Description:
mir-1302 microRNA precursor family: a 52-nucleotide RNA sequence from Camelus dromedarius. Pairs were carried over by alignment from the consensus structure, which was predicted with WAR. The match comes from Rfam's covariance-model search (76 bits). Taxonomically the source falls in Camelus (Eukaryota, Bilateria, Dipnotetrapodomorpha, Tetrapoda).

[Rfam]
RNA sequence: UUUUUAGGGUAAGUAUGUUCCAUGCAAUAUUUGGUAUAUACUUAUCCUAAAA
Number, nucleotide and partner (000 for none) at each position: 001u000002u000003u000004u000005u000006a048007g047008g046009g045010u044011a043012a042013g000014u040015a039016u038017g000018u036019u000020c034021c033022a031023u000024g000025c000026a000027a000028u000029a000030u000031u022032u000033g021034g020035u000036a018037u000038a016039u015040a014041c000042u012043u011044a010045u009046c008047c007048u006049a000050a000051a000052a000